Eukaryotic large subunit ribosomal RNA: a 411-nucleotide part of an RNA from Brettanomyces bruxellensis.
Rfam's curators put it in the seed alignment.
[Rfam]
RNA sequence: UGACCUCAAAUCAGGUAGGAGGACCCGCUGAACUUAAGCAUAUCAAUAAGCGGAGGAAAAGAAACCAACAGGGAUUGCCCCAGUAAUGGCGAAUGAAGCGGCAAGAGCCCAAAUUUGAAAUCGGGCAACCGAGUUGUAAUUUGGAGACGGGACACUAGAGAGGAGGAAGGCGAUUAAGUGCCUUGGAACAGGCUGCCGUAGAGGGUGAGAGCCCCGUGAAUCGCUGGAGACCGAUCAAUUAGUGCCCGCCGAAGAGUCGAGUUGUUUGGGAAUGCAGCUCUAAGUGGGUGGUAUAUUCCAUCUAAGGCUAAAUAUUAGCGAGAGACCGAUAGCAAACAAGUACAGUGAUGGAAAGAUGAAAAGAACUUUGGAAAGAGAGUGAAAUAGUACGUGAAAUUGUUGAAAGGGAAG
Numbered sequence: 001u002g003a004c005c006u007c008a009a010a011u012c013a014g015g016u017a018g019g020a021g022g023a024c025c026c027g028c029u030g031a032a033c034u035u036a037a038g039c040a041u042a043u044c045a046a047u048a049a050g051c052g053g054a055g056g057a058a059a060a061g062a063a064a065c066c067a068a069c070a071g072g073g074a075u076u077g078c079c080c081c082a083g084u085a086a087u088g089g090c091g092a093a094u095g096a097a098g099c100g101g102c103a104a105g106a107g108c109c110c111a112a113a114u115u116u117g118a119a120a121u122c123g124g125g126c127a128a129c130c131g132a133g134u135u136g137u138a139a140u141u142u143g144g145a146g147a148c149g150g151g152a153c154a155c156u157a158g159a160g161a162g163g164a165g166g167a168a169g170g171c172g173a174u175u176a177a178g179u180g181c182c183u184u185g186g187a188a189c190a191g192g193c194u195g196c197c198g199u200a201g202a203g204g205g206u207g208a209g210a211g212c213c214c215c216g217u218g219a220a221u222c223g224c225u226g227g228a229g230a231c232c233g234a235u236c237a238a239u240u241a242g243u244g245c246c247c248g249c250c251g252a253a254g255a256g257u258c259g260a261g262u263u264g265u266u267u268g269g270g271a272a273u274g275c276a277g278c279u280c281u282a283a284g285u286g287g288g289u290g291g292u293a294u295a296u297u298c299c300a301u302c303u304a305a306g307g308c309u310a311a312a313u314a315u316u317a318g319c320g321a322g323a324g325a326c327c328g329a330u331a332g333c334a335a336a337c338a339a340g341u342a343c344a345g346u347g348a349u350g351g352a353a354a355g356a357u358g359a360a361a362a363g364a365a366c367u368u369u370g371g372a373a374a375g376a377g378a379g380u381g382a383a384a385u386a387g388u389a390c391g392u393g394a395a396a397u398u399g400u401u402g403a404a405a406g407g408g409a410a411g
Stems, first nucleotide, its partner, number of pairs: 024055001025053005035042002065072002076103004086094002106309004112141004118135002121132004146250001148248004153244004160235001163232001169225006178194001180193004197201001204214002259280007286303005343350002366377004